[Rfam]
RNA sequence: UUGGUUAGAAAUCAACUCAGGUCGUGACCGCAACGGUACGACACUUCAGCUCGCCACGCCGGCAGCGAGCGCAACACCGGCAGAAAGAAUCUGCCCGGCCUCAAACGAGGCCGACGGGACAUUACAGUCAAC
Numbered sequence: 001u002u003g004g005u006u007a008g009a010a011a012u013c014a015a016c017u018c019a020g021g022u023c024g025u026g027a028c029c030g031c032a033a034c035g036g037u038a039c040g041a042c043a044c045u046u047c048a049g050c051u052c053g054c055c056a057c058g059c060c061g062g063c064a065g066c067g068a069g070c071g072c073a074a075c076a077c078c079g080g081c082a083g084a085a086a087g088a089a090u091c092u093g094c095c096c097g098g099c100c101u102c103a104a105a106c107g108a109g110g111c112c113g114a115c116g117g118g119a120c121a122u123u124a125c126a127g128u129c130a131a132c
Stems, first nucleotide, its partner, number of pairs: 021042005027037003049070006079095006097112006
The record is a 132-nucleotide sequence from Pseudomonas japonica, which matches "rmf RNA" in Rfam. The base pairs follow the family's consensus structure, which is taken from published work. Rfam classes the family as a cis-regulatory element. A search with the family's covariance model found it, with a score of 123 bits.